RNA: mir-548 microRNA precursor family
Organism: Nomascus leucogenys
RNA sequence: GAAUAUGUUGGUGCAAAAGUAAUCGUGGUCUUUGCCAUUACUUUCAAUGGCAAAGACCACGAUUACUUUUGCACCAACAUAUUC
Numbered sequence: 001g002a003a004u005a006u007g008u009u010g011g012u013g014c015a016a017a018a019g020u021a022a023u024c025g026u027g028g029u030c031u032u033u034g035c036c037a038u039u040a041c042u043u044u045c046a047a048u049g050g051c052a053a054a055g056a057c058c059a060c061g062a063u064u065a066c067u068u069u070u071g072c073a074c075c076a077a078c079a080u081a082u083u084c
Base pairs, nucleotide, nucleotide: 001084002083003082004081005080006079007078008077009076010075011074012073013072014071015070016069017068018067019066020065021064022063023062024061025060026059027058028057029056030055031054032053033052034051035050036049037048038047039046